[Rfam]
RNA: Eukaryotic large subunit ribosomal RNA, nucleotides 2420 to 3019
Organism: Zygotorulaspora mrakii
RNA sequence: CGGGGAAAGAAGACCCUGUUGAGCUUGACUCUAGUUUGACAUUGUGAAGAGACAUAGAGGGUGUAGCAUAAGUGGGAGCUUCGGCGCCAGUGAAAUACCACUACCUUUAUAGUUUCUUUACUUAUUCAAUGAAGCGGAGCUGGAAUUCGUUUUCCAUGUUCUAGCAUUCAAGGCUGCCCUUGUGGCGGGCCGAUCCGGGUUGAAGACAUUGUCAGGUGGGGAGUUUGGCUGGGGCGGCACAUCUGUUAAACGAUAACGCAGAUGUCCUAAGGGGGACUCAUGGAGAACAGAAAUCUCCAGUAGAACAAAAGGGUAAAAGUCCCCUUGAUUUUGAUUUUCAGUGUGAAUACAAACCAUGAAAGUGUGGCCUAUCGAUCCUUUAGUCCCUCGGAAUUUGAGGCUAGAGGUGCCAGAAAAGUUACCACAGGGAUAACUGGCUUGUGGCAGUCAAGCGUUCAUAGCGACAUUGCUUUUUGAUUCUUCGAUGUCGGCUCUUCCUAUCAUACCGAAGCAGAAUUCGGUAAGCGUUGGAUUGUUCACCCACUAAUAGGGAACGUGAGCUGGGUUUAGACCGUCGUGAGACAGGUUAGUUUUACCCUA
Numbered sequence: 001c002g003g004g005g006a007a008a009g010a011a012g013a014c015c016c017u018g019u020u021g022a023g024c025u026u027g028a029c030u031c032u033a034g035u036u037u038g039a040c041a042u043u044g045u046g047a048a049g050a051g052a053c054a055u056a057g058a059g060g061g062u063g064u065a066g067c068a069u070a071a072g073u074g075g076g077a078g079c080u081u082c083g084g085c086g087c088c089a090g091u092g093a094a095a096u097a098c099c100a101c102u103a104c105c106u107u108u109a110u111a112g113u114u115u116c117u118u119u120a121c122u123u124a125u126u127c128a129a130u131g132a133a134g135c136g137g138a139g140c141u142g143g144a145a146u147u148c149g150u151u152u153u154c155c156a157u158g159u160u161c162u163a164g165c166a167u168u169c170a171a172g173g174c175u176g177c178c179c180u181u182g183u184g185g186c187g188g189g190c191c192g193a194u195c196c197g198g199g200u201u202g203a204a205g206a207c208a209u210u211g212u213c214a215g216g217u218g219g220g221g222a223g224u225u226u227g228g229c230u231g232g233g234g235c236g237g238c239a240c241a242u243c244u245g246u247u248a249a250a251c252g253a254u255a256a257c258g259c260a261g262a263u264g265u266c267c268u269a270a271g272g273g274g275g276a277c278u279c280a281u282g283g284a285g286a287a288c289a290g291a292a293a294u295c296u297c298c299a300g301u302a303g304a305a306c307a308a309a310a311g312g313g314u315a316a317a318a319g320u321c322c323c324c325u326u327g328a329u330u331u332u333g334a335u336u337u338u339c340a341g342u343g344u345g346a347a348u349a350c351a352a353a354c355c356a357u358g359a360a361a362g363u364g365u366g367g368c369c370u371a372u373c374g375a376u377c378c379u380u381u382a383g384u385c386c387c388u389c390g391g392a393a394u395u396u397g398a399g400g401c402u403a404g405a406g407g408u409g410c411c412a413g414a415a416a417a418g419u420u421a422c423c424a425c426a427g428g429g430a431u432a433a434c435u436g437g438c439u440u441g442u443g444g445c446a447g448u449c450a451a452g453c454g455u456u457c458a459u460a461g462c463g464a465c466a467u468u469g470c471u472u473u474u475u476g477a478u479u480c481u482u483c484g485a486u487g488u489c490g491g492c493u494c495u496u497c498c499u500a501u502c503a504u505a506c507c508g509a510a511g512c513a514g515a516a517u518u519c520g521g522u523a524a525g526c527g528u529u530g531g532a533u534u535g536u537u538c539a540c541c542c543a544c545u546a547a548u549a550g551g552g553a554a555c556g557u558g559a560g561c562u563g564g565g566u567u568u569a570g571a572c573c574g575u576c577g578u579g580a581g582a583c584a585g586g587u588u589a590g591u592u593u594u595a596c597c598c599u600a
Stems, first nucleotide, its partner, number of pairs: 003599003007594002015428004020424002022420005028224004035216007044121010054110007071102005078085002125204005135197004142154004172191004227240001228238003241263006266367002272324006278304002281299006305314002329353003334348004355364003378406006386400004437478001439476001441475001443471006452462002489564001490562004494556001495553005502527001505522006529543003533539001570588004574583003
Dot-bracket structure: ..(((.((......((((.(((((((.((((...(((((((..(((((((((((((((((..........(((((..((....))............))))).))))))).))))))))))...(((((.....((((...((((.....)))).................((((............))))..))))..))))).....)))))))....))))..((((.....))).)((((((...........))))))..((....((((((((.((((((.......))))))...))((......))....))))))....(((..((((.......))))..))).(((....))).))..........((((((..((((.......)))))))))).........)))))..))))))........(.(.(.((((((...((.......))...))))))...)).)..........(((((((((((..(..((((((......))))))....).(((.(.....).))).....)))))..)..)))).).....(((((((....))).))))....))..))).